[Rfam]
Rfam assigns this 279-nucleotide RNA from Nannospalax galili to the family "Mason-Pfizer monkey virus packaging signal". Rfam's curators write: This family represents a group of sequences that are related to the Mason-Pfizer monkey virus (MPMV) packaging signal. The packaging signal is located in the 5' UTR and is required for specific RNA encapsidation. It scores 184 bits against the family's covariance model. The family's RNA type in Rfam is cis-regulatory element. The family's consensus secondary structure was predicted with PFOLD.

RNA sequence: UGGCGCCCAACGUGGGGCUGGAUACUGGGGGCAUUUCGUGAGGGAGAUGACGGAAAAAGGAAGGAGUGCACUCAUUCAAUUUUGAGUAGUUUGGAGACGCAGUGGGAGCCUGCUGCGACCGAACUGAAGGUAAGUUGUGCCGUCCGAUCAUGGGGCAAGAAUUGAGCCAGCAUCAGAUUUAUGUCAAGUAAUUGAGAGAGGCUCUAAAGACAUGAGGAGUAAAGGUUAGGACUGUGGAUUUAUUUCAUUUCUUUGAUUUUGUAAAGGACAUUUGUCCCU
Numbered sequence: 001u002g003g004c005g006c007c008c009a010a011c012g013u014g015g016g017g018c019u020g021g022a023u024a025c026u027g028g029g030g031g032c033a034u035u036u037c038g039u040g041a042g043g044g045a046g047a048u049g050a051c052g053g054a055a056a057a058a059g060g061a062a063g064g065a066g067u068g069c070a071c072u073c074a075u076u077c078a079a080u081u082u083u084g085a086g087u088a089g090u091u092u093g094g095a096g097a098c099g100c101a102g103u104g105g106g107a108g109c110c111u112g113c114u115g116c117g118a119c120c121g122a123a124c125u126g127a128a129g130g131u132a133a134g135u136u137g138u139g140c141c142g143u144c145c146g147a148u149c150a151u152g153g154g155g156c157a158a159g160a161a162u163u164g165a166g167c168c169a170g171c172a173u174c175a176g177a178u179u180u181a182u183g184u185c186a187a188g189u190a191a192u193u194g195a196g197a198g199a200g201g202c203u204c205u206a207a208a209g210a211c212a213u214g215a216g217g218a219g220u221a222a223a224g225g226u227u228a229g230g231a232c233u234g235u236g237g238a239u240u241u242a243u244u245u246c247a248u249u250u251c252u253u254u255g256a257u258u259u260u261g262u263a264a265a266g267g268a269c270a271u272u273u274g275u276c277c278c279u
Stems, first nucleotide, its partner, number of pairs: 006031003012025003036050004088131001090129003098121002102116004138157003143154004163206002166202003213255007223241005264279001266277004
The source organism's lineage runs through Eukaryota, Eumetazoa, Mammalia, Rodentia and Nannospalax. For this family Rfam cites "Secondary structure model of the Mason-Pfizer monkey virus 5' leader sequence: identification of a structural motif common to a variety of retroviruses" (Harrison et al., J Virol, 1995).